[Rfam]
About this RNA: A member of the RNA family "Bacterial large subunit ribosomal RNA" from Candidatus Zinderia insecticola, 443 nucleotides of a longer RNA. The family's consensus secondary structure is taken from published work.
RNA sequence: CUCUCCGAAAACUAUUUAGGUAGUGCCUUAAAUUUUAUAUUUUAUAGGGGUAGAGCUCUGUUAUGGAUAGGGGAUUGAAAAAUUUACCAAACCAUUGCAAACUACGAAUACUAUUAAAAUAAAUUUAAGAGACAGACUUUGGGUGCUAACGUCCAAUGUCAAAAGGGAAACAACCCAGAUUGCCAGCUAAGGUCCCUAAAAUUAACUAAGUGGAAAACGAUGUUAAAAAACAAAGACAGUCAGGAGGUAGGCUUAGAAGCAGUCAUCCUUUAAAGAAAGCGUAAUAGCUCACUGAUCAAGUUUUUUUGCGCGGAAAAUGUAACGGGGCUAAGUUAAUUACCGAAGCUGCAAAUAUUUUAUAUAAAUAAAAUAUGGUAGGAGAGCGUUCUGUAAGUCUGUGAAGAUUUUUUGUAAAAAAUAUUGGAGAUAUCAGAAGUGCGAAU
Numbered sequence: 001c002u003c004u005c006c007g008a009a010a011a012c013u014a015u016u017u018a019g020g021u022a023g024u025g026c027c028u029u030a031a032a033u034u035u036u037a038u039a040u041u042u043u044a045u046a047g048g049g050g051u052a053g054a055g056c057u058c059u060g061u062u063a064u065g066g067a068u069a070g071g072g073g074a075u076u077g078a079a080a081a082a083u084u085u086a087c088c089a090a091a092c093c094a095u096u097g098c099a100a101a102c103u104a105c106g107a108a109u110a111c112u113a114u115u116a117a118a119a120u121a122a123a124u125u126u127a128a129g130a131g132a133c134a135g136a137c138u139u140u141g142g143g144u145g146c147u148a149a150c151g152u153c154c155a156a157u158g159u160c161a162a163a164a165g166g167g168a169a170a171c172a173a174c175c176c177a178g179a180u181u182g183c184c185a186g187c188u189a190a191g192g193u194c195c196c197u198a199a200a201a202u203u204a205a206c207u208a209a210g211u212g213g214a215a216a217a218c219g220a221u222g223u224u225a226a227a228a229a230a231c232a233a234a235g236a237c238a239g240u241c242a243g244g245a246g247g248u249a250g251g252c253u254u255a256g257a258a259g260c261a262g263u264c265a266u267c268c269u270u271u272a273a274a275g276a277a278a279g280c281g282u283a284a285u286a287g288c289u290c291a292c293u294g295a296u297c298a299a300g301u302u303u304u305u306u307u308g309c310g311c312g313g314a315a316a317a318u319g320u321a322a323c324g325g326g327g328c329u330a331a332g333u334u335a336a337u338u339a340c341c342g343a344a345g346c347u348g349c350a351a352a353u354a355u356u357u358u359a360u361a362u363a364a365a366u367a368a369a370a371u372a373u374g375g376u377a378g379g380a381g382a383g384c385g386u387u388c389u390g391u392a393a394g395u396c397u398g399u400g401a402a403g404a405u406u407u408u409u410u411g412u413a414a415a416a417a418a419u420a421u422u423g424g425a426g427a428u429a430u431c432a433g434a435a436g437u438g439c440g441a442a443u
Stems, first nucleotide, its partner, number of pairs: 001383006011024005026131001027129007038122001040118003044114004053105001054103002059099003063095004070088002072085005135160003139156006165176003180351004185347003191341003200338007218312002222309002225306007239296005245269003250264003270274001275290001279288002352373008384438001386435005394428003403422003407418004